This 60-nucleotide RNA from Crinalium epipsammum belongs to the Rfam family "Nitrogen stress-induced RNA 1". The match comes from Rfam's covariance-model search (62 bits). The base pairs follow the family's consensus structure. On this family, see Ionescu et al., J Mol Biol 2010: "Heterocyst-specific transcription of NsiR1, a non-coding RNA encoded in a tandem array of direct repeats in cyanobacteria".

RNA sequence: UGGUAGAUGCACCCUGAUUAAGAUCCCCUGGCUCACAGCUUUGAGUUGGGGAUUUUUUUA
Numbered sequence: 001u002g003g004u005a006g007a008u009g010c011a012c013c014c015u016g017a018u019u020a021a022g023a024u025c026c027c028c029u030g031g032c033u034c035a036c037a038g039c040u041u042u043g044a045g046u047u048g049g050g051g052a053u054u055u056u057u058u059u060a
Stems, first nucleotide, its partner, number of pairs: 002013003026051010